[Rfam]
RNA: ZMP/ZTP riboswitch aptamer (pfl RNA motif)
Organism: Clostridium aciditolerans
RNA sequence: AAUUAGUCACAUUACUGGCGGAAGUGGAGUUUACCACAGGGAGUGUGAUUUGUAAAAAAAUGCCGACCGCCUGGGCAAAAUGU
Numbered sequence: 001a002a003u004u005a006g007u008c009a010c011a012u013u014a015c016u017g018g019c020g021g022a023a024g025u026g027g028a029g030u031u032u033a034c035c036a037c038a039g040g041g042a043g044u045g046u047g048a049u050u051u052g053u054a055a056a057a058a059a060a061u062g063c064c065g066a067c068c069g070c071c072u073g074g075g076c077a078a079a080a081u082g083u
Stems, first nucleotide, its partner, number of pairs: 003052001005050008015040002017071005024037004061077004